[Rfam]
RNA: mir-203 microRNA precursor family
RNA sequence: UCCUCUUUGGUCGAGUGGUUCUCGAUAGUUCAACAGUCUUGCUUGAUUUUGUGAAAUGUUUAGGACCACUUGACCACUG
Numbered sequence: 001u002c003c004u005c006u007u008u009g010g011u012c013g014a015g016u017g018g019u020u021c022u023c024g025a026u027a028g029u030u031c032a033a034c035a036g037u038c039u040u041g042c043u044u045g046a047u048u049u050u051g052u053g054a055a056a057u058g059u060u061u062a063g064g065a066c067c068a069c070u071u072g073a074c075c076a077c078u079g
Base pairs, nucleotide, nucleotide: 014070015069016068017067018066019065021063022062024060025059026058027057029055030054031053032052